[Rfam]
RNA sequence: UUGCCGGUGGAAGUCCGGUCCGGGUAGCUGCCAGGAGGCCCGGUAGCAGGCUGGCGGCUUCGUCUGGAAACGGGCGGGGUCGAAGCCCAGCGUCAAAGGCCCGGCCGCAAGGUCGGGAACAAGG
Numbered sequence: 001u002u003g004c005c006g007g008u009g010g011a012a013g014u015c016c017g018g019u020c021c022g023g024g025u026a027g028c029u030g031c032c033a034g035g036a037g038g039c040c041c042g043g044u045a046g047c048a049g050g051c052u053g054g055c056g057g058c059u060u061c062g063u064c065u066g067g068a069a070a071c072g073g074g075c076g077g078g079g080u081c082g083a084a085g086c087c088c089a090g091c092g093u094c095a096a097a098g099g100c101c102c103g104g105c106c107g108c109a110a111g112g113u114c115g116g117g118a119a120c121a122a123g124g
Stems, first nucleotide, its partner, number of pairs: 020043005050091005055082006064073001066071001100117006

Description
The record is a 124-nucleotide sequence from Nonomuraea fuscirosea, which matches "Group II catalytic intron D1-D4-4" in Rfam. About the family: Group II introns are found in rRNA, tRNA and mRNA of organelles in fungi, plants and protists, and also in mRNA in bacteria. Lineage of the source: Bacteria > Bacillati > Actinomycetota > Actinomycetes > Nonomuraea. Its family is annotated with Group II intron splicing in the Gene Ontology. The match comes from Rfam's covariance-model search (77 bits).